Shown here is a 173-nucleotide RNA from Burkholderia glumae, a member of the family "Burkholderia RNA 14".
Nucleotides: 173
Base pairs, nucleotide, nucleotide: 003054004053005052006051007050008047009046010045011043012042013041016038019036021034023031055150056149058147059143060142065139067137069135070134072133074131075130078093079092080091082089094121095120097118100115102114103113104112105111106110157172158171160168161167
Number, partner (000 for none) and nucleotide at each position: 001000g002000u003054c004053g005052g006051c007050g008047u009046c010045g011043u012042g013041a014000c015000g016038g017000u018000g019036c020000a021034g022000c023031c024000g025000c026000a027000a028000u029000c030000g031023g032000u033000a034021c035000c036019g037000g038016u039000g040000a041013u042012c043011a044000c045010c046009g047008a048000g049000c050007u051006g052005c053004c054003g055150g056149g057000g058147c059143g060142c061000a062000c063000c064000a065139c066000c067137g068000c069135g070134u071000u072133c073000c074131u075130c076000g077000u078093u079092g080091c081000c082089c083000a084000g085000g086000u087000g088000c089082g090000c091080g092079c093078g094121c095120g096000c097118g098000u099000g100115g101000a102114c103113g104112g105111c106110a107000u108000c109000g110106u111105g112104c113103u114102g115100c116000g117000c118097c119000g120095c121094g122000a123000g124000u125000u126000u127000a128000c129000c130075g131074a132000g133072g134070g135069c136000u137067c138000g139065g140000a141000c142060g143059u144000g145000a146000a147058g148000g149056c150055c151000g152000g153000c154000c155000a156000g157172c158171g159000c160168c161167u162000c163000u164000a165000c166000a167161a168160g169000a170000u171158c172157g173000a
Rfam links the family to the GO term protein binding. NCBI's taxonomy places the organism under Bacteria, Pseudomonadota, Betaproteobacteria, Burkholderiales, Burkholderia glumae. Rfam describes the family as follows. Co-purified with Hfq, expression confirmed by Northern blot. Putative functional homologue of PA-SraF. Overlaps coding sequence. By type it is a small RNA.